[Rfam]
pan motif: an 86-nucleotide RNA from Syntrophotalea acetylenica. The base pairs follow the family's consensus structure, which is taken from published work. Taxonomically the source falls in Syntrophotalea (Bacteria, Pseudomonadati, Desulfuromonadia, Desulfuromonadales).

RNA sequence: GGCCCGGAACAUGAGCCGGAGCCGCAGGGGGUCUGCCUUUUUCGCACGUUUCAUACCGCCUGGAUCCAUUGGACCGGGACGGAAGG
Numbered sequence: 001g002g003c004c005c006g007g008a009a010c011a012u013g014a015g016c017c018g019g020a021g022c023c024g025c026a027g028g029g030g031g032u033c034u035g036c037c038u039u040u041u042u043c044g045c046a047c048g049u050u051u052c053a054u055a056c057c058g059c060c061u062g063g064a065u066c067c068a069u070u071g072g073a074c075c076g077g078g079a080c081g082g083a084a085g086g
Stems, first nucleotide, its partner, number of pairs: 001023003004019004010015001056082003059078005065073003